[Rfam]
RNA sequence: GACGUGCGAACCAAGCAGUCACCACGGUGGUGAGGCUUGGAGCGGACGGACGCAACCGUCCUGCA
Numbered sequence: 001g002a003c004g005u006g007c008g009a010a011c012c013a014a015g016c017a018g019u020c021a022c023c024a025c026g027g028u029g030g031u032g033a034g035g036c037u038u039g040g041a042g043c044g045g046a047c048g049g050a051c052g053c054a055a056c057c058g059u060c061c062u063g064c065a
Stems, first nucleotide, its partner, number of pairs: 011040005020029003044061006
Overview: Shown here is a 65-nucleotide sequence from Bifidobacterium tissieri, a member of the family "Transposase-2 RNA". The family's consensus secondary structure is taken from published work. Rfam classes the family as a small RNA. The family has 151 seed sequences and 214 matches in Rfam 15.1. Taxonomically the source falls in Bifidobacterium (Bacteria, Actinomycetes, Bifidobacteriales, Bifidobacteriaceae).